[Rfam]
RNA: skipping-rope RNA
RNA sequence: AGGACUAAAGGGUAGAACGGUCAGCUACCGCCACAGAGAAGCUCUGGUAGGAGAUGCUGGGUUGACAGCCAGCUUAGUUCU
Numbered sequence: 001a002g003g004a005c006u007a008a009a010g011g012g013u014a015g016a017a018c019g020g021u022c023a024g025c026u027a028c029c030g031c032c033a034c035a036g037a038g039a040a041g042c043u044c045u046g047g048u049a050g051g052a053g054a055u056g057c058u059g060g061g062u063u064g065a066c067a068g069c070c071a072g073c074u075u076a077g078u079u080c081u
Stems, first nucleotide, its partner, number of pairs: 001081008011029005020066004031051001035045002056073005